[Rfam]
RNA sequence: UAAUCAAAAAGUACCGGAAACAUUUGCCACGAUGAUUUAACGUUAAUUGUCAAGUUUAAUCAUUGCCAUUACUGAGAUUGCAGUCUCUUAAUGUUAGUUUCCCAGAUAAAAAAUAUUUUUGUCCUGGAUAGGAAGUUUGGAUAUCGUUGUGUCUCUUUAUUGAGGCGAUGAAAUCUGAAUGUCGAUGAAAGGAGAUAUCU
Numbered sequence: 001u002a003a004u005c006a007a008a009a010a011g012u013a014c015c016g017g018a019a020a021c022a023u024u025u026g027c028c029a030c031g032a033u034g035a036u037u038u039a040a041c042g043u044u045a046a047u048u049g050u051c052a053a054g055u056u057u058a059a060u061c062a063u064u065g066c067c068a069u070u071a072c073u074g075a076g077a078u079u080g081c082a083g084u085c086u087c088u089u090a091a092u093g094u095u096a097g098u099u100u101c102c103c104a105g106a107u108a109a110a111a112a113a114u115a116u117u118u119u120u121g122u123c124c125u126g127g128a129u130a131g132g133a134a135g136u137u138u139g140g141a142u143a144u145c146g147u148u149g150u151g152u153c154u155c156u157u158u159a160u161u162g163a164g165g166c167g168a169u170g171a172a173a174u175c176u177g178a179a180u181g182u183c184g185a186u187g188a189a190a191g192g193a194g195a196u197a198u199c200u
Base pairs, nucleotide, nucleotide: 015074016073017072031064032063033062034061035060036059037058039056042055043054044053118188119187135180136179137178138177140175142173144171145170150167151166152165153164154163155162
Dot-bracket structure: ..............(((.............(((((((.(..(((........)))).))))))).......)))...........................................((...............((((.(.(.((....((((((......))))))..)).).).))))......))............
Shown here is a 200-nucleotide RNA sequence from Hansenula anomala, a member of the family "Small nucleolar RNA snR34". The source organism's lineage runs through Eukaryota, Ascomycota, Saccharomycotina, Phaffomycetales and Hansenula.